This 81-nucleotide RNA from Chlamydotis macqueenii belongs to the Rfam family "Small nucleolar RNA MBII-202". Rfam 15.1 lists 745 matches to the family in 452 species. For this family Rfam cites "RNomics: an experimental approach that identifies 201 candidates for novel, small, non-messenger RNAs in mouse" (Huttenhofer et al., EMBO J, 2001). Pairs were carried over by alignment from the consensus structure, which was predicted with PFOLD. Taxonomically the source falls in Chlamydotis (Eukaryota, Chordata, Teleostomi, Otidimorphae).
[Rfam]
RNA sequence: GAUGAGAAAUCUCCGGAAUCGCUGUACCGCGUUGAUGAUUCCCUUGAACCCUGUUAUCUCUGAUGACUGCAGCUGUUCUGU
Numbered sequence: 001g002a003u004g005a006g007a008a009a010u011c012u013c014c015g016g017a018a019u020c021g022c023u024g025u026a027c028c029g030c031g032u033u034g035a036u037g038a039u040u041c042c043c044u045u046g047a048a049c050c051c052u053g054u055u056a057u058c059u060c061u062g063a064u065g066a067c068u069g070c071a072g073c074u075g076u077u078c079u080g081u
Stems, first nucleotide, its partner, number of pairs: 002081003006077001